[Rfam]
RNA sequence: GGCAGAGUAGGAAAGCAUGUGUAAGUCCUCAACAAGGACCAGUGCCGGUGAGACGGGGAGUUGUUCACCGGACGAAAAGACUUGAUCUGCAGUAUGCUUUCCGCAUCCCGCUGCC
Numbered sequence: 001g002g003c004a005g006a007g008u009a010g011g012a013a014a015g016c017a018u019g020u021g022u023a024a025g026u027c028c029u030c031a032a033c034a035a036g037g038a039c040c041a042g043u044g045c046c047g048g049u050g051a052g053a054c055g056g057g058g059a060g061u062u063g064u065u066c067a068c069c070g071g072a073c074g075a076a077a078a079g080a081c082u083u084g085a086u087c088u089g090c091a092g093u094a095u096g097c098u099u100u101c102c103g104c105a106u107c108c109c110g111c112u113g114c115c
Stems, first nucleotide, its partner, number of pairs: 001115005010102010020091003042073002045071008056108003060104001077088001079087002